[Rfam]
ROOL RNA: a 619-nucleotide RNA sequence. The sequence is in the family's curated seed alignment. The family's consensus secondary structure is taken from published work. Rfam describes the family as follows. Firmicutes, Fusobacteria (1 example), Tenericutes (1 example).

RNA sequence: CUUUAAAAAUUUAAAGAUUGCAACCUCGAUGAACAAUGCGAAUGCCAUCGCAUCGAGAAAUUCUCUACCAUUGUUAUGGGAAGCAGAGUAAAGAGAACGAAGGAUACUUUUUUCUUCUUUGCUUUUGAUCAUGAGUGAUCAUGUGAUACGAGUGAGAAACGAUCAAGUGUGUGGGAAUUGUGCAGACUGAUAAAUUUCAUAGCGCAAGGAACUUCUUGGGUGAGUAAUAGACGCCUCCGGUGGAGGAAUAACCUGUCCAAUGUCUUUCAUGUGGCAAUGAUCGAUAUGACAGGAAGCCAAAUAAUCACUUUUCGAUGUGAAACUGUAUAAAAUACAGUGUAUAAAAGAAGUCGCCGAUCCAUAGACCAAGUCGAGAAUGAUACAAAUUAUCAAAAUAGAAAAAAUAUACAGGUUUUUGAUAAAACUUAACAUUCUGAAUGGUGGUUCAAUGGUGCUCUUAGCAGUAGAGUCGUUGGGAUAUGCAAAUAUCGGACAUUUUGUCUUUGGGAAGAAGCUUAGAGUCGCUCUCGAAAGCUCAGACUUCCUUACCUCCGUCGCGUAAUAAUGAUCUCUUAUCAAGGACUGUAGGGCGAAGGCCACUGCAAUCUUUAAUAAAUCU
Numbered sequence: 001c002u003u004u005a006a007a008a009a010u011u012u013a014a015a016g017a018u019u020g021c022a023a024c025c026u027c028g029a030u031g032a033a034c035a036a037u038g039c040g041a042a043u044g045c046c047a048u049c050g051c052a053u054c055g056a057g058a059a060a061u062u063c064u065c066u067a068c069c070a071u072u073g074u075u076a077u078g079g080g081a082a083g084c085a086g087a088g089u090a091a092a093g094a095g096a097a098c099g100a101a102g103g104a105u106a107c108u109u110u111u112u113u114c115u116u117c118u119u120u121g122c123u124u125u126u127g128a129u130c131a132u133g134a135g136u137g138a139u140c141a142u143g144u145g146a147u148a149c150g151a152g153u154g155a156g157a158a159a160c161g162a163u164c165a166a167g168u169g170u171g172u173g174g175g176a177a178u179u180g181u182g183c184a185g186a187c188u189g190a191u192a193a194a195u196u197u198c199a200u201a202g203c204g205c206a207a208g209g210a211a212c213u214u215c216u217u218g219g220g221u222g223a224g225u226a227a228u229a230g231a232c233g234c235c236u237c238c239g240g241u242g243g244a245g246g247a248a249u250a251a252c253c254u255g256u257c258c259a260a261u262g263u264c265u266u267u268c269a270u271g272u273g274g275c276a277a278u279g280a281u282c283g284a285u286a287u288g289a290c291a292g293g294a295a296g297c298c299a300a301a302u303a304a305u306c307a308c309u310u311u312u313c314g315a316u317g318u319g320a321a322a323c324u325g326u327a328u329a330a331a332a333u334a335c336a337g338u339g340u341a342u343a344a345a346a347g348a349a350g351u352c353g354c355c356g357a358u359c360c361a362u363a364g365a366c367c368a369a370g371u372c373g374a375g376a377a378u379g380a381u382a383c384a385a386a387u388u389a390u391c392a393a394a395a396u397a398g399a400a401a402a403a404a405u406a407u408a409c410a411g412g413u414u415u416u417u418g419a420u421a422a423a424a425c426u427u428a429a430c431a432u433u434c435u436g437a438a439u440g441g442u443g444g445u446u447c448a449a450u451g452g453u454g455c456u457c458u459u460a461g462c463a464g465u466a467g468a469g470u471c472g473u474u475g476g477g478a479u480a481u482g483c484a485a486a487u488a489u490c491g492g493a494c495a496u497u498u499u500g501u502c503u504u505u506g507g508g509a510a511g512a513a514g515c516u517u518a519g520a521g522u523c524g525c526u527c528u529c530g531a532a533a534g535c536u537c538a539g540a541c542u543u544c545c546u547u548a549c550c551u552c553c554g555u556c557g558c559g560u561a562a563u564a565a566u567g568a569u570c571u572c573u574u575a576u577c578a579a580g581g582a583c584u585g586u587a588g589g590g591c592g593a594a595g596g597c598c599a600c601u602g603c604a605a606u607c608u609u610u611a612a613u614a615a616a617u618c619u
Stems, first nucleotide, its partner, number of pairs: 007617001010614001012612001014610003019605001025057005037052005059179006087123006094115004099110004125146002130143005150164002153161002193574001208355002211351007218310006234246004252293006262285003267280003272299004312374005322338005360451001364446005433540004456469001458467001472553001475501001505548004510543002514536001516533001517531001519529003589598003